T-box leader: a 213-nucleotide sequence from Clostridium pasteurianum.
The organism belongs to Clostridium pasteurianum, within Bacteria.
RNA sequence: AUAAUAGCUUUGAUCGGGAAGAGUACUUAUUUUUGAUGCUUAAAGAGAGUGGGAAAUGCUGUGACCCCAUAGUAGAUACUUAAGGAAAAUCACCUGUGAGCUGAGGGCUGAAACUAAAAGUAAGCUUAUCCGUAUUUUACGUUAAAAAAUAGAGUAUGUUUGUACUUGAUAGCUUAAAUUUAGGUGGUAUAACGAAUUAACUUCGUCCUAGUU
Numbered sequence: 001a002u003a004a005u006a007g008c009u010u011u012g013a014u015c016g017g018g019a020a021g022a023g024u025a026c027u028u029a030u031u032u033u034u035g036a037u038g039c040u041u042a043a044a045g046a047g048a049g050u051g052g053g054a055a056a057u058g059c060u061g062u063g064a065c066c067c068c069a070u071a072g073u074a075g076a077u078a079c080u081u082a083a084g085g086a087a088a089a090u091c092a093c094c095u096g097u098g099a100g101c102u103g104a105g106g107g108c109u110g111a112a113a114c115u116a117a118a119a120g121u122a123a124g125c126u127u128a129u130c131c132g133u134a135u136u137u138u139a140c141g142u143u144a145a146a147a148a149a150u151a152g153a154g155u156a157u158g159u160u161u162g163u164a165c166u167u168g169a170u171a172g173c174u175u176a177a178a179u180u181u182a183g184g185u186g187g188u189a190u191a192a193c194g195a196a197u198u199a200a201c202u203u204c205g206u207c208c209u210a211g212u213u
Base pairs, nucleotide, nucleotide: 007101008100015096016095017094018093026084027083028082029081038073039072040071049070050069051068052067053066103129105127106126107125108124109123131141132140133139155176156175158173159172160171181210182209183208184207192206193205194204195203196202

The base pairs follow the family's consensus structure, which is taken from published work.